[Rfam]
Rfam assigns this 48-nucleotide RNA sequence from Orthohepacivirus hominis to the family "Hepatitis C virus stem-loop SL1412 RNA". On this family, see Pirakitikulr et al., Mol Cell 2016: "The Coding Region of the HCV Genome Contains a Network of Regulatory RNA Structures". By type it is a cis-regulatory element. HCV_SL1412 is a stem-loop in the coding region of the C (core) gene. NCBI's taxonomy places the organism under Viruses, Orthornavirae, Amarillovirales, Hepaciviridae, Orthohepacivirus.

RNA sequence: AUGGGCCUUGCCUACUAUUCCAUGGUGGGGAACUGGGCGAAGGUACUA
Numbered sequence: 001a002u003g004g005g006c007c008u009u010g011c012c013u014a015c016u017a018u019u020c021c022a023u024g025g026u027g028g029g030g031a032a033c034u035g036g037g038c039g040a041a042g043g044u045a046c047u048a
Base pairs, nucleotide, nucleotide: 006043007042008041010038011037012036013035014034018031019030020029021028